[Rfam]
RNA: Selenocysteine transfer RNA
Organism: Nitrospirillum viridazoti
RNA sequence: GGAAGGGAAUCGCCCCUGGUGGGGCGUCCGGACUUCAAAUCCGGGUGGGGCAGCGAGACUGUCCCGGGUGGGUUCGACUCCCAUUCCCUUCC
Numbered sequence: 001g002g003a004a005g006g007g008a009a010u011c012g013c014c015c016c017u018g019g020u021g022g023g024g025c026g027u028c029c030g031g032a033c034u035u036c037a038a039a040u041c042c043g044g045g046u047g048g049g050g051c052a053g054c055g056a057g058a059c060u061g062u063c064c065c066g067g068g069u070g071g072g073u074u075c076g077a078c079u080c081c082c083a084u085u086c087c088c089u090u091c092c
Base pairs, nucleotide, nucleotide: 001092002091003090004089005088006087007086008085009084011026012025013024014023015022016021027045028044029043030042031041032040047065048064049063050062051061069083070082071081072080